COG3860 RNA: a 56-nucleotide RNA from Pseudolabrys taiwanensis. The source organism's lineage runs through Bacteria, Pseudomonadati, Hyphomicrobiales, Xanthobacteraceae and Pseudolabrys. It scores 66 bits against the family's covariance model.
RNA sequence: CGGUCGGCAGCUCACCGAGGCAUCGCCACCCCUCCCGAGGGGCGCUAAACCUGCCA
Numbered sequence: 001c002g003g004u005c006g007g008c009a010g011c012u013c014a015c016c017g018a019g020g021c022a023u024c025g026c027c028a029c030c031c032c033u034c035c036c037g038a039g040g041g042g043c044g045c046u047a048a049a050c051c052u053g054c055c056a
Base pairs, nucleotide, nucleotide: 001017002016003015004014029042030041031040032039